The family of this 68-nucleotide sequence from Urocitellus parryii is "mir-19 microRNA precursor family".
RNA sequence: UGUGCUAGUCAGUUUUGCAUUAUUGUAACAAUUGUAUUUUGCAAUUUAAUGCAAAACUGACUAGCACA
Numbered sequence: 001u002g003u004g005c006u007a008g009u010c011a012g013u014u015u016u017g018c019a020u021u022a023u024u025g026u027a028a029c030a031a032u033u034g035u036a037u038u039u040u041g042c043a044a045u046u047u048a049a050u051g052c053a054a055a056a057c058u059g060a061c062u063a064g065c066a067c068a
Stems, first nucleotide, its partner, number of pairs: 003066017020048001022045007030038003
The family has 106 seed sequences and 2,337 matches in Rfam 15.1.
The base pairs follow the family's consensus structure, which was predicted with RNAalifold.
A search with the family's covariance model found it, with a score of 56 bits.